[Rfam]
RNA sequence: GUCAGAUGAUUUGAAUCAAUAACCUGAUGCUCUGUGAAGUAUGACAGUUACAGCAUGUUAGAGUUCUGAUGGCA
Numbered sequence: 001g002u003c004a005g006a007u008g009a010u011u012u013g014a015a016u017c018a019a020u021a022a023c024c025u026g027a028u029g030c031u032c033u034g035u036g037a038a039g040u041a042u043g044a045c046a047g048u049u050a051c052a053g054c055a056u057g058u059u060a061g062a063g064u065u066c067u068g069a070u071g072g073c074a
Stems, first nucleotide, its partner, number of pairs: 001073004
RNA: Small nucleolar RNA SNORD28